[Rfam]
RNA sequence: GUGAGGUGAUGACGAAGUUUAUCCAUUCUCUGAGUGCAGUGGUGCUGCCCUCCUGCAGCACCCUGAUGCCUGUUCUAGGGUCUGGGUGCUGUGCAGCCUCUAGAGACCCUCCAGUCUCCCAGUGACCUACUAGGGGCUGCUGUGGUGUGUGGCUGGCUGCCUGCAGGAGUGAAGUGGUGCCGACAGGGUUGGAGCCUCUCUUUGAGGGGCUCCUUCCCCACUGAGAUGAGGGAUGAUGUCUGAUCAC
Numbered sequence: 001g002u003g004a005g006g007u008g009a010u011g012a013c014g015a016a017g018u019u020u021a022u023c024c025a026u027u028c029u030c031u032g033a034g035u036g037c038a039g040u041g042g043u044g045c046u047g048c049c050c051u052c053c054u055g056c057a058g059c060a061c062c063c064u065g066a067u068g069c070c071u072g073u074u075c076u077a078g079g080g081u082c083u084g085g086g087u088g089c090u091g092u093g094c095a096g097c098c099u100c101u102a103g104a105g106a107c108c109c110u111c112c113a114g115u116c117u118c119c120c121a122g123u124g125a126c127c128u129a130c131u132a133g134g135g136g137c138u139g140c141u142g143u144g145g146u147g148u149g150u151g152g153c154u155g156g157c158u159g160c161c162u163g164c165a166g167g168a169g170u171g172a173a174g175u176g177g178u179g180c181c182g183a184c185a186g187g188g189u190u191g192g193a194g195c196c197u198c199u200c201u202u203u204g205a206g207g208g209g210c211u212c213c214u215u216c217c218c219c220a221c222u223g224a225g226a227u228g229a230g231g232g233a234u235g236a237u238g239u240c241u242g243a244u245c246a247c
Base pairs, nucleotide, nucleotide: 010246011245012244017239018238020236023232024231026230027229028228030225031224034221035220039184040183042181043179044178045177046176047175048174049171050169051168052167053166054165056163057162059088060087061086062085063084065082066081067080069079070078071077093160094159095158096157097156098155106146107145112139113138114137115136116135118134119133121131122130123129124128186218187217188216191213192212193211195209196208197207198206
Dot-bracket structure: .........(((....((.(..((.(((.((..((...((.(((((((((((((.((.(((((.(((.(((.....)))))).)))))....((((((.......((....(((((.((.((((...)))).))))))).....))........)))))).)).))))).)..)))))).).)).(((..(((.((((.......)))).)))..))).))..))..)))))...).))....))).
The family of this 247-nucleotide sequence from Nyctibius bracteatus is "Small nucleolar RNA SNORD17". The family has 19 seed sequences and 1,015 matches in Rfam 15.1. Rfam links the family to the GO terms RNA processing and nucleolus. The source organism's lineage runs through Eukaryota, Amniota, Neognathae, Nyctibiidae and Nyctibius. A reference for the family is Huttenhofer et al. (2001), "RNomics: an experimental approach that identifies 201 candidates for novel, small, non-messenger RNAs in mouse", EMBO J. About the family: The snoRNA HBI-43 belongs to the C/D family of snoRNAs, guiding 2'O-ribose methylation at position U3797 of the 28S rRNA. Pseudouridylation in position U3797 is predicted to be guided by the H/ACA snoRNA ACA48.